[Rfam]
RNA sequence: AAAGUUUCUUACGAAGAAGGUUUAGCCAAUCACUUCGGCCUCCGGCGGAGGGACGAAUGCGGUAACGCGUGCGUUCUAAGCGUCCGUGCAGGGGGAAGCGUAGGCCAGCUAAUUGAGCUCCGAAAUCAAGUCUUCCAUGUGCCGACCGUGUCAUGUGCGUCGGGAAGGCAACACUGGGAUACACGAUAUGGCAAGUGUGCCCUGGACAUGGCGGAGUCGAAGAACC
Dot-bracket structure: ...........(((((..(((([.[[.)))).))))).((((..((((.((((((.(((((....))))).)))).)...)..))..)).))))...................((.((((((............(((((((((..(((............)))...)))....(((((.(((((......]].]))))).)))))))))))))))))).)......